A member of the RNA family "permuted transfer-messenger RNA" from Hyphomonas neptunium, 217 nucleotides long. Rfam links the family to the GO term RNA catabolic process. A reference for the family is Williams and Bartel (1996), "Phylogenetic analysis of tmRNA secondary structure", RNA. The family's consensus secondary structure is taken from published work. By type it is a non-coding RNA gene.
RNA sequence: GGCGAUAAACGCGCGUGUAAUAAGCGGCUCGGACCCGGGGGCGGUACCCGGCGGCUCCACCAAAAGCAGAUCAGCAAUGGUCUGUUUCUGACGGGGCCGAAAUAGUGUCGACGGACGUGUAAAGACGAGGCUUUCGCUCGCUUGAGCUGCGUUAGAAGCUCAAAAGCAAAUAGUUGCAAAUGACAACUUUGCUGAGGGCGAAUUGCUCGCCGCGUAA
Dot-bracket structure: (((((........(((........((..(((...(((((.......)))))(((((((..................................)))))))............))).)).......)))......)))))(((.......)))..................................................................